[Rfam]
RNA sequence: GUGGCACCAAUGAAAGUCUUCACUGAAAACAGAGUCUCUGCUGGUGUAGACUGGAUGUCCUCGUCCAC
Numbered sequence: 001g002u003g004g005c006a007c008c009a010a011u012g013a014a015a016g017u018c019u020u021c022a023c024u025g026a027a028a029a030c031a032g033a034g035u036c037u038c039u040g041c042u043g044g045u046g047u048a049g050a051c052u053g054g055a056u057g058u059c060c061u062c063g064u065c066c067a068c
Stems, first nucleotide, its partner, number of pairs: 001068004015052005021046004030040003
This 68-nucleotide RNA sequence from Astyanax mexicanus belongs to the Rfam family "Selenocysteine insertion sequence 1". NCBI's taxonomy places the organism under Eukaryota, Neopterygii, Osteoglossocephalai, Otomorpha, Astyanax. The family's RNA type in Rfam is cis-regulatory element. Rfam 15.1 lists 3,793 matches to the family in 721 species.